[Rfam]
RNA sequence: UAAUUAUCGGGAACAGCGCUUCCCAUAAUUU
Numbered sequence: 001u002a003a004u005u006a007u008c009g010g011g012a013a014c015a016g017c018g019c020u021u022c023c024c025a026u027a028a029u030u031u
Stems, first nucleotide, its partner, number of pairs: 002030006009024005014018001
Iron response element II: a 31-nucleotide RNA from Tupaia belangeri. The literature on the family includes a 1996 paper in Proc Natl Acad Sci U S A by Gray et al., "Translational regulation of mammalian and Drosophila citric acid cycle enzymes via iron-responsive elements". Rfam describes the family as follows. IRE, TFRC, SLC40A1, SDHB, SLC11A2, CDC42BPA, ACO2, ALAS2_H.SAPIENS, CDC14A, EPAS1, ALAS2, qoxD, Hao1, NDUFS1, transferrin, Aconitate. It is annotated as a cis-regulatory element. The family's consensus secondary structure is taken from published work.